[Rfam]
RNA sequence: UAAUACAAGAGAAAAGAGAGAAAUGCGUCAACAUUCCCCUCUUUUGCAGAACCGUUAAAGACGGUAGCCAAAUAGAAGAAACAAAAA
Numbered sequence: 001u002a003a004u005a006c007a008a009g010a011g012a013a014a015a016g017a018g019a020g021a022a023a024u025g026c027g028u029c030a031a032c033a034u035u036c037c038c039c040u041c042u043u044u045u046g047c048a049g050a051a052c053c054g055u056u057a058a059a060g061a062c063g064g065u066a067g068c069c070a071a072a073u074a075g076a077a078g079a080a081a082c083a084a085a086a087a
Base pairs, nucleotide, nucleotide: 022035023034024033025032051065052064053063054062055061056060
Rfam assigns this 87-nucleotide RNA sequence from Carnobacterium antarcticum to the family "RNA anti-toxin A". For this family Rfam cites "Abundance of type I toxin-antitoxin systems in bacteria: searches for new candidates and discovery of novel families" (Fozo et al., Nucleic Acids Res, 2010). By type it is an antitoxin RNA. The organism belongs to Carnobacterium, within Bacteria. The base pairs follow the family's consensus structure, which was predicted with RNAalifold.